[Rfam]
RNA sequence: GCGUUUUGAGGGCAAACCCAUCGAAAGGUGGGGACGCAAAGCCACCGGCCUACCGCGCGCAAGCGCCACGGCAGCGGGGUUGCCGAC
Numbered sequence: 001g002c003g004u005u006u007u008g009a010g011g012g013c014a015a016a017c018c019c020a021u022c023g024a025a026a027g028g029u030g031g032g033g034a035c036g037c038a039a040a041g042c043c044a045c046c047g048g049c050c051u052a053c054c055g056c057g058c059g060c061a062a063g064c065g066c067c068a069c070g071g072c073a074g075c076g077g078g079g080u081u082g083c084c085g086a087c
Base pairs, nucleotide, nucleotide: 012037013036017032018031019030020029021028022027040081041080042079043078045077046076047075048072049071050070055066056065057064058063
Rfam assigns this 87-nucleotide RNA from Pseudideonella sakaiensis to the family "c-di-GMP-I riboswitch aptamer". It scores 84 bits against the family's covariance model. NCBI's taxonomy places the organism under Bacteria, Pseudomonadati, Betaproteobacteria, Sphaerotilaceae, Pseudideonella.